RNA sequence: CGCUCGACUGGUCGGCUUGAAAACGGCAGCGGUCGAGGGAUACACCGGACUGUGGGGAAGUCUCUGAGAACCGGGAACAGGUGGCGAAGCUAGCGCCUGUGGGACGAACGGCUGGCGGGC
Numbered sequence: 001c002g003c004u005c006g007a008c009u010g011g012u013c014g015g016c017u018u019g020a021a022a023a024c025g026g027c028a029g030c031g032g033u034c035g036a037g038g039g040a041u042a043c044a045c046c047g048g049a050c051u052g053u054g055g056g057g058a059a060g061u062c063u064c065u066g067a068g069a070a071c072c073g074g075g076a077a078c079a080g081g082u083g084g085c086g087a088a089g090c091u092a093g094c095g096c097c098u099g100u101g102g103g104a105c106g107a108a109c110g111g112c113u114g115g116c117g118g119g120c
Stems, first nucleotide, its partner, number of pairs: 001039001003037008026053004045074004061104004077100006089116006
Rfam assigns this 120-nucleotide RNA from Pseudazoarcus pumilus to the family "Betaproteobacteria-1 RNA". The base pairs follow the family's consensus structure, which is taken from published work. The source organism's lineage runs through Bacteria, Pseudomonadati, Pseudomonadota, Betaproteobacteria and Pseudazoarcus. By type it is a small RNA.